Source information
Small nucleolar RNA SNORA46: a 136-nucleotide RNA. Pairs were carried over by alignment from the consensus structure, which was predicted with RNAfold. Rfam's curators write: ACA46 is a member of the H/ACA class of snoRNA that guide the sites of modification of uridines to pseudouridines. The sequence is in the family's curated seed alignment. Rfam links the family to the GO terms RNA processing and nucleolus.
[Rfam]
RNA sequence: AGCACUAUUUUUAAACCUGUUGGUGGAUUUUCCUGGCCAUCAUGGGUUACGCUGUAGUGCAAAAGAAUCUCCUGGCUCUUCAGAGUAUAGUUGGCCUUCUGUUUGGCUGAUGCUGCUCUGAAGCUAAGGGACAGAG
Numbered sequence: 001a002g003c004a005c006u007a008u009u010u011u012u013a014a015a016c017c018u019g020u021u022g023g024u025g026g027a028u029u030u031u032c033c034u035g036g037c038c039a040u041c042a043u044g045g046g047u048u049a050c051g052c053u054g055u056a057g058u059g060c061a062a063a064a065g066a067a068u069c070u071c072c073u074g075g076c077u078c079u080u081c082a083g084a085g086u087a088u089a090g091u092u093g094g095c096c097u098u099c100u101g102u103u104u105g106g107c108u109g110a111u112g113c114u115g116c117u118c119u120g121a122a123g124c125u126a127a128g129g130g131a132c133a134g135a136g
Stems, first nucleotide, its partner, number of pairs: 002060007014048004021042006068131002071129003074125004079120001082117001085113003088109004093104002